[Rfam]
RNA sequence: CCGUCGGUGAAAGUCCGCCCCGGCUAACUCUCGCUCCGACUGGAAGGACAAGAAGCGGUCCAGGAGGUAACAAAAGGGCUGAAUCUCUCCCUGAAACGACUUCUUCAGGAAGUCAACGGGUUAUGCGGGCCGUAACGUGA
Numbered sequence: 001c002c003g004u005c006g007g008u009g010a011a012a013g014u015c016c017g018c019c020c021c022g023g024c025u026a027a028c029u030c031u032c033g034c035u036c037c038g039a040c041u042g043g044a045a046g047g048a049c050a051a052g053a054a055g056c057g058g059u060c061c062a063g064g065a066g067g068u069a070a071c072a073a074a075a076g077g078g079c080u081g082a083a084u085c086u087c088u089c090c091c092u093g094a095a096a097c098g099a100c101u102u103c104u105u106c107a108g109g110a111a112g113u114c115a116a117c118g119g120g121u122u123a124u125g126c127g128g129g130c131c132g133u134a135a136c137g138u139g140a
Base pairs, nucleotide, nucleotide: 020043021042022041023040052090054088055087056081057080058079059078060077061076066071098114099113100112101111102110103109116133117132118131